[Rfam]
Shown here is a 160-nucleotide RNA sequence from Alicyclobacillaceae bacterium I2511, a member of the family "c-di-AMP riboswitch aptamer (ydaO/yuaA leader)". This family represents a conserved RNA structure found upstream of the ydaO and yuaA genes in Bacillus subtilis and related genes in other bacteria. A search with the family's covariance model found it, with a score of 72 bits.
RNA sequence: ACUUUAAAGAAGCUAAAACUUCUAACCAUAGAAGUACGGGGGACGCUUUUGUGUGUGGGUCAUUCAUACAGGCCCACUUGGGGUGAAUCGCUUCACUGCGACGGGUAAUCUCCUGCAUCCGAACCCAACAACUAACCUCGUCAGCGAAAAGGGAGAGUGA
Numbered sequence: 001a002c003u004u005u006a007a008a009g010a011a012g013c014u015a016a017a018a019c020u021u022c023u024a025a026c027c028a029u030a031g032a033a034g035u036a037c038g039g040g041g042g043a044c045g046c047u048u049u050u051g052u053g054u055g056u057g058g059g060u061c062a063u064u065c066a067u068a069c070a071g072g073c074c075c076a077c078u079u080g081g082g083g084u085g086a087a088u089c090g091c092u093u094c095a096c097u098g099c100g101a102c103g104g105g106u107a108a109u110c111u112c113c114u115g116c117a118u119c120c121g122a123a124c125c126c127a128a129c130a131a132c133u134a135a136c137c138u139c140g141u142c143a144g145c146g147a148a149a150a151g152g153g154a155g156a157g158u159g160a
Base pairs, nucleotide, nucleotide: 012145013144014143018035019034020033021032022031023030036141037140038139039138040137041136046080081126082125083124089100090099091098103120104119105118106117
Dot-bracket structure: ...........(((...((((((......))))))((((((....(.................................)(((.....(((......)))..((((..........))))...))).........)))))).)))...............